Source information: The family of this 345-nucleotide RNA from Alectura lathami is "7SK RNA". The base pairs follow the family's consensus structure, which is taken from published work. 7SK was discovered as an abundant small nuclear RNA in the mid-70s but a possible function has only recently been suggested. Two independent studies have found that 7SK RNA binds the CDK9/cyclin T complex (known as elongation factor P-TEFb). P-TEFb activates transcription by phosphorylating the C-terminal domain of RNA polymerase II. This process is negatively regulated by the 7SK RNP. The secondary structure of 7SK RNA shown here was proposed by Wasserman and Steitz on the basis of chemical modification and enzymatic cleavage experiments. This family contains a number of annotated pseudogenes and 7SK derived repeats. The source organism's lineage runs through Eukaryota, Archosauria, Aves, Galliformes and Alectura. It scores 236 bits against the family's covariance model.
RNA sequence: GGAUGUGAAGGCAAUCUGGCUGCGACAUCUGCCACCCCAUUGAUCGCCAGGGUUGAUUCGGCUGAUCUGGCUGGCUAGGCGUGUGUCCCCUUCCUCCCUCACCGCUCCAUGUGUGUCCCUCCCGAAGCUGCGCGCUCGGUCGCAGAGGACGACCUUCCCUGAUAGAGAUGUACCGUUCAUCGGUCAAGGGUAUACGGUAACUGCGCUCCCCUGCUAGAACCUCCAAACAAGCUCAAGGAAUACUAACAUGCCCUAUUUUUUAAUCACAUUUCAAUAAUCAUAGAAUUGCUUGGGUUGGAAAGGACCUUGAAGAUUCAUCCAGUUUAGCCUGCCCAGUCUGGCUUU
Dot-bracket structure: (((.((((.((..(...((....(((((.((((.(((((..(((((((...........))).)))))))..))...)))).))))).)).)...)).))))...)))........(.(((((((.((.....))))))(((....(((......))).)))..)))..)..............................((...(..(((.(........(.(......(.................................................).).)....).)))..)...)).......................((((..........))))..